Rfam assigns this 52-nucleotide sequence from Mangrovicoccus algicola to the family "ffh sRNA".
RNA sequence: GGCAUUCGGGAUCGACACACGCCAGCGCGAUGCGCCCGCGGGUGCCGGUGCC
Numbered sequence: 001g002g003c004a005u006u007c008g009g010g011a012u013c014g015a016c017a018c019a020c021g022c023c024a025g026c027g028c029g030a031u032g033c034g035c036c037c038g039c040g041g042g043u044g045c046c047g048g049u050g051c052c
Stems, first nucleotide, its partner, number of pairs: 016044003020040003025035004
Lineage of the source: Bacteria > Pseudomonadati > Pseudomonadota > Paracoccaceae > Mangrovicoccus.